[Rfam]
The family of this 94-nucleotide RNA sequence from Oleidesulfovibrio alaskensis is "Glycine riboswitch aptamer". The organism belongs to Oleidesulfovibrio alaskensis, within Bacteria. This family represents the bacterial glycine riboswitch. Its Rfam clan is "Glycine riboswitch clan". Rfam links the family to the GO term glycine biosynthetic process. The match comes from Rfam's covariance-model search (60 bits).
Nucleotides: 094
Base pairs, nucleotide, nucleotide: 006089007088008087009086010085011084012083013082020049021048022047023046024045025044051074052073053072054070055069058068059067060066
Number, partner (000 for none) and nucleotide at each position: 001000a002000u003000g004000a005000c006089g007088a008087c009086a010085g011084c012083a013082g014000g015000a016000g017000a018000g019000a020049u021048u022047u023046c024045c025044g026000c027000c028000g029000u030000u031000c032000c033000a034000c035000a036000c037000c038000c039000c040000c041000g042000g043000a044025c045024g046023g047022a048021a049020a050000c051074g052073c053072c054070g055069a056000a057000g058068a059067a060066g061000u062000a063000a064000a065000u066060c067059u068058u069055u070054c071000a072053g073052g074051c075000a076000a077000a078000a079000g080000g081000a082013c083012u084011g085010c086009u087008g088007u089006u090000u091000g092000a093000c094000g